[Rfam]
RNA: Flavobacterium-1 RNA
RNA sequence: CGAGAUAGGGGUACAAAUCUUGCCACUGGCGUUUCCCUGGACCUUAGCGAUGAAGGCAUUUCAAAGCCUGAGCAACGACUCUCGGCGUUAGAGGGGAGAGUGCCAGACGUGGUGUCUCCUCUGACG
Numbered sequence: 001c002g003a004g005a006u007a008g009g010g011g012u013a014c015a016a017a018u019c020u021u022g023c024c025a026c027u028g029g030c031g032u033u034u035c036c037c038u039g040g041a042c043c044u045u046a047g048c049g050a051u052g053a054a055g056g057c058a059u060u061u062c063a064a065a066g067c068c069u070g071a072g073c074a075a076c077g078a079c080u081c082u083c084g085g086c087g088u089u090a091g092a093g094g095g096g097a098g099a100g101u102g103c104c105a106g107a108c109g110u111g112g113u114g115u116c117u118c119c120u121c122u123g124a125c126g
Stems, first nucleotide, its partner, number of pairs: 001084005006078001008076001009044004014039002021031004047073002055069002087125011103112003
Dot-bracket structure: ((((((.(((((.((.....((((...))))......)).))))..((......((...........))..))..).).)))))..(((((((((((.....(((....)))..))))))))))).